[Rfam]
RNA: small nucleolar RNA snoR117
RNA sequence: UGCCGAUGAUGUAUGAUGUAUUGUCCGUACCAUCUGAAAUCCUUUGAUUAGUACUUGCAUCCAAUUUCUGAGGCAU
Numbered sequence: 001u002g003c004c005g006a007u008g009a010u011g012u013a014u015g016a017u018g019u020a021u022u023g024u025c026c027g028u029a030c031c032a033u034c035u036g037a038a039a040u041c042c043u044u045u046g047a048u049u050a051g052u053a054c055u056u057g058c059a060u061c062c063a064a065u066u067u068c069u070g071a072g073g074c075a076u
Base pairs, nucleotide, nucleotide: 001075002074003073004072